The record is a 58-nucleotide RNA from Allopusillimonas soli, which matches "Betaproteobacteria toxic small RNA" in Rfam. For this family Rfam cites "A vast collection of microbial genes that are toxic to bacteria" (Kimelman et al., Genome Res, 2012). Pairs were carried over by alignment from the consensus structure, which was predicted with WAR. The organism belongs to Allopusillimonas, within Bacteria. Rfam's curators write: Overexpression in amino aid rich medium attenuates growth, suggesting role in repressing amino acid intake and metabolism.
[Rfam]
RNA sequence: UGUCUCCUCCACCUCGCGGUGGAUUUGGGCCUGAGUCUUAGGAUUCAGGCCUCUUUUU
Numbered sequence: 001u002g003u004c005u006c007c008u009c010c011a012c013c014u015c016g017c018g019g020u021g022g023a024u025u026u027g028g029g030c031c032u033g034a035g036u037c038u039u040a041g042g043a044u045u046c047a048g049g050c051c052u053c054u055u056u057u058u
Stems, first nucleotide, its partner, number of pairs: 008023006028051008